[Rfam]
The record is a 117-nucleotide RNA sequence from Etheostoma spectabile, which matches "U5 spliceosomal RNA" in Rfam. It is annotated as a spliceosomal small nuclear RNA.
RNA sequence: UUACUCUGGUUUCUCUUCAUAAAGCACAAGUCUUUCGCCUUUUACUAAAGACUUCCGUGGAGAGGAACGCCUAUGAGUUGAAAUUAUUUUUGGUGGGCUUUGCUGUUUGGCUAAGCC
Numbered sequence: 001u002u003a004c005u006c007u008g009g010u011u012u013c014u015c016u017u018c019a020u021a022a023a024g025c026a027c028a029a030g031u032c033u034u035u036c037g038c039c040u041u042u043u044a045c046u047a048a049a050g051a052c053u054u055c056c057g058u059g060g061a062g063a064g065g066a067a068c069g070c071c072u073a074u075g076a077g078u079u080g081a082a083a084u085u086a087u088u089u090u091u092g093g094u095g096g097g098c099u100u101u102g103c104u105g106u107u108u109g110g111c112u113a114a115g116c117c
Stems, first nucleotide, its partner, number of pairs: 003078004009068011028054008095117001097116004102111001